The family of this 47-nucleotide sequence from Carnegiea gigantea is "Plastid-rpl16 group II-D1 intron". The family has 538 seed sequences and 1,446 matches in Rfam 15.1. Lineage of the source: Eukaryota > Euphyllophyta > Mesangiospermae > Cactoideae > Carnegiea. On this family, see Richter et al., Plant Commun 2023: "Retrograde signaling in plants: A critical review focusing on the GUN pathway and beyond". About the family: Plastid-rpl16 is a non-coding RNA (ncRNA) recognised in plastids. It was recognised in and intronic region of a ribosome rpl16 gene. A search with the family's covariance model found it, with a score of 55 bits. Rfam links the family to the GO term Group II intron splicing.

[Rfam]
RNA sequence: AAGAGUCUCAAGCCAAUGGAGACUAAGAAGGUUGGCUCAAGAACAAA
Numbered sequence: 001a002a003g004a005g006u007c008u009c010a011a012g013c014c015a016a017u018g019g020a021g022a023c024u025a026a027g028a029a030g031g032u033u034g035g036c037u038c039a040a041g042a043a044c045a046a047a
Base pairs, nucleotide, nucleotide: 007041008040011037012036013035014034015033016032017031